Source information
Shown here is a 139-nucleotide RNA from Pipistrellus kuhlii, a member of the family "Small Cajal body specific RNA 3". scaRNAs are a specific class of small nuclear RNAs which localise to the Cajal bodies and guide the modification of RNA polymerase II transcribed spliceosomal RNAs U1, U2, U4, U5 and U12. The source organism's lineage runs through Eukaryota, Deuterostomia, Craniata, Mammalia and Pipistrellus. A search with the family's covariance model found it, with a score of 139 bits. For this family Rfam cites "Cajal body-specific small nuclear RNAs: a novel class of 2'-O-methylation and pseudouridylation guide RNAs" (Darzacq et al., EMBO J, 2002).

RNA sequence: AAUGGAACCUGCAGGUACUAAACAUGUAGACAAAUGAAAAAUGCCUUUGUCUACAAAUUGCAGUGAUCCUACAUAAACAUGAAGGUCUCUGUCUGGCUUAGCACAGCUAUCUAAGUCUGAUUGUUACCCUCCAUACAAG
Number, nucleotide and partner (000 for none) at each position: 001a000002a000003u000004g069005g068006a067007a000008c000009c063010u062011g061012c060013a000014g000015g000016u000017a000018c000019u000020a000021a000022a000023c000024a000025u055026g054027u053028a052029g051030a050031c049032a000033a000034a000035u000036g048037a047038a046039a000040a000041a000042u000043g000044c000045c000046u038047u037048u036049g031050u030051c029052u028053a027054c026055a025056a000057a000058u000059u000060g012061c011062a010063g009064u000065g000066a000067u006068c005069c004070u000071a000072c000073a000074u000075a000076a000077a000078c000079a000080u000081g132082a000083a130084g129085g128086u000087c000088u000089c123090u000091g121092u120093c119094u000095g117096g116097c115098u114099u113100a112101g111102c000103a000104c000105a000106g000107c000108u000109a000110u000111c101112u100113a099114a098115g097116u096117c095118u000119g093120a092121u091122u000123g089124u000125u000126a000127c000128c085129c084130u083131c000132c081133a000134u000135a000136c000137a000138a000139g000